[Rfam]
RNA sequence: GCCGGUCCUCGGUAGUGGCUCCCGGACCCAUCGACCGGGUGCUUCGAUCGAAGACCGGC
Numbered sequence: 001g002c003c004g005g006u007c008c009u010c011g012g013u014a015g016u017g018g019c020u021c022c023c024g025g026a027c028c029c030a031u032c033g034a035c036c037g038g039g040u041g042c043u044u045c046g047a048u049c050g051a052a053g054a055c056c057g058g059c
Base pairs, nucleotide, nucleotide: 001059002058003057004056005055006054007053009051010050011049012048013047017043018042019041021039022038023037024036025035027033
Actino-pnp RNA: a 59-nucleotide sequence. By type it is a cis-regulatory element.